Rfam assigns this 67-nucleotide sequence from Neotoma lepida to the family "Small nucleolar RNA U2-30". The organism belongs to Neotoma, within Eukaryota. Rfam classes the family as a C/D-box small nucleolar RNA. A reference for the family is Tycowski et al. (2004), "Guide RNAs with 5' Caps and Novel Box C/D snoRNA-like Domains for Modification of snRNAs in Metazoa", Curr Biol.
RNA sequence: GAGUAAUGAUGAAAAUGUACUACUGAAUUUUGAAAAUAGGAAGAUUUCUACAUUUAACCUGAGCUCA
Dot-bracket structure: ((((........((((........)...)))...............................)))).

The match comes from Rfam's covariance-model search (62 bits).